[Rfam]
RNA sequence: AUGAAAACGUAGAAAAACAUGAGUACAUAUCAGCCCCUUUUAAGAGAGACUUAUCCUUUGGCUGCAAGAUAAGUUAAAUGAAGAGAUAUGGAAGCUAGUUUAUGAGUGUGAGUCAAUCCUCACCGGUGAGAUACCGUUAUCAGCUUUUAAGGUGAUAGUUACGACGUAACUAUAAUCAGGGUGGUACCGCGAUGUUAGACUCUCGUCCCUGCA
Number, nucleotide and partner (000 for none) at each position: 001a000002u000003g000004a000005a000006a000007a107008c106009g000010u000011a000012g000013a000014a000015a101016a100017a099018c098019a000020u000021g000022a000023g000024u000025a000026c090027a089028u088029a087030u086031c085032a000033g000034c000035c000036c000037c000038u000039u078040u077041u076042a000043a000044g000045a000046g000047a000048g000049a000050c073051u072052u071053a070054u069055c068056c000057u000058u000059u000060g000061g000062c000063u000064g000065c000066a000067a000068g055069a054070u053071a052072a051073g050074u000075u000076a041077a040078a039079u000080g000081a000082a000083g000084a000085g031086a030087u029088a028089u027090g026091g000092a000093a000094g000095c000096u000097a000098g018099u017100u016101u015102a000103u000104g000105a000106g008107u007108g000109u122110g121111a120112g119113u000114c000115a000116a000117u000118c000119c112120u111121c110122a109123c000124c136125g135126g134127u000128g000129a000130g000131a000132u000133a000134c126135c125136g124137u000138u000139a000140u000141c000142a000143g000144c000145u000146u000147u000148u000149a000150a000151g000152g000153u000154g000155a173156u172157a171158g170159u169160u168161a167162c000163g000164a000165c000166g000167u161168a160169a159170c158171u157172a156173u155174a000175a000176u000177c000178a210179g209180g208181g207182u000183g000184g000185u000186a000187c000188c000189g206190c205191g204192a203193u000194g000195u000196u000197a000198g000199a000200c000201u000202c000203u192204c191205g190206u189207c181208c180209c179210u178211g000212c000213a000
RNA: T-box leader